The record is an 89-nucleotide sequence from Paracoccus sulfuroxidans, which matches "Glycine riboswitch aptamer" in Rfam.
This family represents the bacterial glycine riboswitch.
The source organism's lineage runs through Bacteria, Pseudomonadota, Alphaproteobacteria, Paracoccaceae and Paracoccus.
Pairs were carried over by alignment from the consensus structure.
A search with the family's covariance model found it, with a score of 63 bits.
Rfam links the family to the GO term glycine biosynthetic process.

RNA sequence: GGUAGGAAAACGGGAGACACUGGCGCAAGUCAGGGCCGAAGGAGCAACCGCCCCGGCAAACUCUCAGGCAAAAAGACCGUUUUUCGCAU
Numbered sequence: 001g002g003u004a005g006g007a008a009a010a011c012g013g014g015a016g017a018c019a020c021u022g023g024c025g026c027a028a029g030u031c032a033g034g035g036c037c038g039a040a041g042g043a044g045c046a047a048c049c050g051c052c053c054c055g056g057c058a059a060a061c062u063c064u065c066a067g068g069c070a071a072a073a074a075g076a077c078c079g080u081u082u083u084u085c086g087c088a089u
Stems, first nucleotide, its partner, number of pairs: 006084008020033004035069003038065002042063003048056002